[Rfam]
RNA sequence: UCCAAAAGCUAUUGGGUGUGGCUGGGUAGCCAAAUCCAACGCUAUUGGGUCAUGUCAGGCAGACCCAAAGCGAUUGGUUUUUACUGGGUAGGAGGUUCCAAUGCUGUUGAAUAUUGCCAAGCCAGACUUAAUAACACUUUUUGACU
Numbered sequence: 001u002c003c004a005a006a007a008g009c010u011a012u013u014g015g016g017u018g019u020g021g022c023u024g025g026g027u028a029g030c031c032a033a034a035u036c037c038a039a040c041g042c043u044a045u046u047g048g049g050u051c052a053u054g055u056c057a058g059g060c061a062g063a064c065c066c067a068a069a070g071c072g073a074u075u076g077g078u079u080u081u082u083a084c085u086g087g088g089u090a091g092g093a094g095g096u097u098c099c100a101a102u103g104c105u106g107u108u109g110a111a112u113a114u115u116g117c118c119a120a121g122c123c124a125g126a127c128u129u130a131a132u133a134a135c136a137c138u139u140u141u142u143g144a145c146u
Stems, first nucleotide, its partner, number of pairs: 001144002004141005011132007019124005025118005034050006
RNA: MIR474 microRNA precursor family